[Rfam]
RNA sequence: CGGUCUCUCAGGUUCCGGCAGCAUGGCCCUCGGAAUAAGCCGGAAUCUUUCGGCCGACCUUCAUGGUCGGCCAUUUUU
Numbered sequence: 001c002g003g004u005c006u007c008u009c010a011g012g013u014u015c016c017g018g019c020a021g022c023a024u025g026g027c028c029c030u031c032g033g034a035a036u037a038a039g040c041c042g043g044a045a046u047c048u049u050u051c052g053g054c055c056g057a058c059c060u061u062c063a064u065g066g067u068c069g070g071c072c073a074u075u076u077u078u
Base pairs, nucleotide, nucleotide: 010048011047012046013045014044015043016042017041018040019039027033028032052072053071054070055069056068057067058066059065
Annotation: Burkholderia sRNA 54: a 78-nucleotide sequence from Paraburkholderia phymatum. About the family: Identified by RNA-seq, RACE and Northern blot. Strongly expressed in biofilm. By type it is a small RNA. The match comes from Rfam's covariance-model search (46 bits).